Source information
The family of this 100-nucleotide sequence from Lederbergia lenta is "Purine riboswitch aptamer". The organism belongs to Lederbergia, within Bacteria.
[Rfam]
RNA sequence: UAGAAAAUGAUAGAUUUUUUUCGUAUAACCCCAAUAAUACGGUUUGGGGGUCUCUACCAGGAACCAUAAAAUCCUGAUUACGAAGAAGGUACAUGUAUAU
Numbered sequence: 001u002a003g004a005a006a007a008u009g010a011u012a013g014a015u016u017u018u019u020u021u022c023g024u025a026u027a028a029c030c031c032c033a034a035u036a037a038u039a040c041g042g043u044u045u046g047g048g049g050g051u052c053u054c055u056a057c058c059a060g061g062a063a064c065c066a067u068a069a070a071a072u073c074c075u076g077a078u079u080a081c082g083a084a085g086a087a088g089g090u091a092c093a094u095g096u097a098u099a100u
Stems, first nucleotide, its partner, number of pairs: 018086008029049006058076005
Dot-bracket structure: .................((((((((...((((((.........))))))........(((((.........)))))..))))))))..............